[Rfam]
RNA sequence: CUUGCCUGCCCUCCUUGGGCGUUUCCUCCCUAGACUUCGGGCCGCUCGCAAGAGCGGCCUUUUUUCUGUCCGGG
Numbered sequence: 001c002u003u004g005c006c007u008g009c010c011c012u013c014c015u016u017g018g019g020c021g022u023u024u025c026c027u028c029c030c031u032a033g034a035c036u037u038c039g040g041g042c043c044g045c046u047c048g049c050a051a052g053a054g055c056g057g058c059c060u061u062u063u064u065u066c067u068g069u070c071c072g073g074g
Stems, first nucleotide, its partner, number of pairs: 008020004040059008